[Rfam]
Annotation:
This 47-nucleotide RNA from Pelagibacterales bacterium SAG-MED48 belongs to the Rfam family "Exoribonuclease-resistant RNA (xrRNA) plant-infecting virus (class 3)". A reference for the family is Gezelle et al. (2024), "The pseudoknot structure of a viral RNA reveals a conserved mechanism for programmed exoribonuclease resistance", bioRxiv [Preprint]. Rfam describes the family as follows. Exoribonuclease-resistant RNA (xrRNA) plant-infecting virus (class 3) is a ncRNA that was reported in Plant viruses.
RNA sequence: UACCAGCCAACAAAGUUGUUGGAAUGGCUGGAAUUUUAGACAGUUCA
Numbered sequence: 001u002a003c004c005a006g007c008c009a010a011c012a013a014a015g016u017u018g019u020u021g022g023a024a025u026g027g028c029u030g031g032a033a034u035u036u037u038a039g040a041c042a043g044u045u046c047a
Stems, first nucleotide, its partner, number of pairs: 002034001007031002010029001011026002014045005
Dot-bracket structure: .[....[[.[[[.(((((......]]..]]]..]......)))))..